A member of the RNA family "Small nucleolar RNA SNORD2" from Labrus bergylta, 75 nucleotides long. It scores 69 bits against the family's covariance model. Pairs were carried over by alignment from the consensus structure, which was predicted with WAR.
RNA sequence: GGGUGAAAUGAUGGCAUACCAUCUUUCGGGACUGACAUAAAUUGAUGAGUUCCUUUAAUAUUUUACUGAUCACUC
Numbered sequence: 001g002g003g004u005g006a007a008a009u010g011a012u013g014g015c016a017u018a019c020c021a022u023c024u025u026u027c028g029g030g031a032c033u034g035a036c037a038u039a040a041a042u043u044g045a046u047g048a049g050u051u052c053c054u055u056u057a058a059u060a061u062u063u064u065a066c067u068g069a070u071c072a073c074u075c
Base pairs, nucleotide, nucleotide: 001075002074003073004072005071006070